[Rfam]
RNA sequence: AUAUGGGCUAGACUGGAGAGUUAGGGGUCCUCUGUAAGCGCAAAUCCCCUAUACGGCGCGGUCGAAGUUCAAGAGGCGGCAAGCUGAAUGGACAUUGGCCCAGAAUCUCAACGUAGAAACCUCGUCCCGCAGGAUCGGUGGUGGCAGGAUUUCAGCCGUAGGGCUGAAGUUAACUGUCUUAACUGUGGGAACGGGUCAGGUCUGGAAAGAAGCAGCUCUACUGCAGACAGCUGAUGCUUGUGGAGCAACGGGGCGGAGUUGGGGUUUUGGAUCACCAUUGUUCAGGAGGUUUGUCCACUCUUGAACGGGCCCAUUC
Numbered sequence: 001a002u003a004u005g006g007g008c009u010a011g012a013c014u015g016g017a018g019a020g021u022u023a024g025g026g027g028u029c030c031u032c033u034g035u036a037a038g039c040g041c042a043a044a045u046c047c048c049c050u051a052u053a054c055g056g057c058g059c060g061g062u063c064g065a066a067g068u069u070c071a072a073g074a075g076g077c078g079g080c081a082a083g084c085u086g087a088a089u090g091g092a093c094a095u096u097g098g099c100c101c102a103g104a105a106u107c108u109c110a111a112c113g114u115a116g117a118a119a120c121c122u123c124g125u126c127c128c129g130c131a132g133g134a135u136c137g138g139u140g141g142u143g144g145c146a147g148g149a150u151u152u153c154a155g156c157c158g159u160a161g162g163g164c165u166g167a168a169g170u171u172a173a174c175u176g177u178c179u180u181a182a183c184u185g186u187g188g189g190a191a192c193g194g195g196u197c198a199g200g201u202c203u204g205g206a207a208a209g210a211a212g213c214a215g216c217u218c219u220a221c222u223g224c225a226g227a228c229a230g231c232u233g234a235u236g237c238u239u240g241u242g243g244a245g246c247a248a249c250g251g252g253g254c255g256g257a258g259u260u261g262g263g264g265u266u267u268u269g270g271a272u273c274a275c276c277a278u279u280g281u282u283c284a285g286g287a288g289g290u291u292u293g294u295c296c297a298c299u300c301u302u303g304a305a306c307g308g309g310c311c312c313a314u315u316c
Stems, first nucleotide, its partner, number of pairs: 003314007011063004015033004020028002038059004067306009078295004082290001084288001089284006096277003100270013114256001120253006127243007134235005139229002141180001143178005148171010183226006193218004201210003
RNA: Archaeal signal recognition particle RNA
Organism: Methanobacterium sp. A39